[Rfam]
RNA sequence: AAACGAGGUCCAGAGUCACCCGUUCGGUUUGUACUGCUUGGGUGCUAGGAUAACUCGAAAAUAAAAUAGUGAUAAUAUGCGAAUAGAGCUUGCAUACUGCUCCUCUAUUCCACCUCAUUUUCUGACAUA
Numbered sequence: 001a002a003a004c005g006a007g008g009u010c011c012a013g014a015g016u017c018a019c020c021c022g023u024u025c026g027g028u029u030u031g032u033a034c035u036g037c038u039u040g041g042g043u044g045c046u047a048g049g050a051u052a053a054c055u056c057g058a059a060a061a062u063a064a065a066a067u068a069g070u071g072a073u074a075a076u077a078u079g080c081g082a083a084u085a086g087a088g089c090u091u092g093c094a095u096a097c098u099g100c101u102c103c104u105c106u107a108u109u110c111c112a113c114c115u116c117a118u119u120u121u122c123u124g125a126c127a128u129a
Stems, first nucleotide, its partner, number of pairs: 004057004008051004014046002017044006025036001027034002068123002072118002078112002081110004086105003092100002
RNA: C. elegans snoRNA ceN100
Organism: Caenorhabditis bovis